[Rfam]
RNA sequence: GAAACGCGAACCAAGCAACCACCCACCGGUGGUGUAAGACUUGGAGCUGCCUCGGGCAACCGAGGCAUGUA
Dot-bracket structure: ..........(((((..(((((......)))))......)))))...((((((((....))))))))....

This 71-nucleotide RNA belongs to the Rfam family "Transposase-2 RNA". The family has 151 seed sequences and 214 matches in Rfam 15.1. Pairs were carried over by alignment from the consensus structure, which is taken from published work. The family's RNA type in Rfam is small RNA. The sequence is in the family's curated seed alignment.